[Rfam]
RNA sequence: AGGGGCGUAGCUCAACCCGGCAGAGCACCGGAUUCCAAACCCGACGGUUGCAGGUUCGAAUCCUGCCGCCCCUG
Numbered sequence: 001a002g003g004g005g006c007g008u009a010g011c012u013c014a015a016c017c018c019g020g021c022a023g024a025g026c027a028c029c030g031g032a033u034u035c036c037a038a039a040c041c042c043g044a045c046g047g048u049u050g051c052a053g054g055u056u057c058g059a060a061u062c063c064u065g066c067c068g069c070c071c072c073u074g
Stems, first nucleotide, its partner, number of pairs: 001073007010026004029043003050066005
This 74-nucleotide RNA sequence from Micromonospora inositola belongs to the Rfam family "tRNA".
Pairs were carried over by alignment from the consensus structure, which is taken from published work.
The match comes from Rfam's covariance-model search (61 bits).